[Rfam]
RNA sequence: UGAGUGUUAUGAUGGUGGAAUGGGAUUAUUUCUAUUCUUAGUCUAGCUCUGGUCUACCGCUAGGAAUUUUCCUAGCGG
Dot-bracket structure: .((((.....(((...(((((((((....)))))))))..)))..)))).......(((((((((....)))))))))